Shown here is a 143-nucleotide RNA from Mediterraneibacter torques, a member of the family "Ribosomal protein L10 leader". A search with the family's covariance model found it, with a score of 72 bits. NCBI's taxonomy places the organism under Bacteria, Bacillati, Clostridia, Lachnospirales, Mediterraneibacter. It is annotated as a cis-regulatory leader.

[Rfam]
RNA sequence: AUUAUAGCCUAGCAACUGCCGAAGACAGUAGGUGCUGAAAAAGCGUAAGUUAUGAACGCCUACCGAGGAAGAAUGAAUUUUUACAUGCGUAUGAAUUUGUAGAACCUCCACGUCUUUGGACCUGGAGAUUUUUUUAGUUUCAG
Dot-bracket structure: ...........................(((((((((.....))).............))))))..........................................(((((.(((....))).)))))................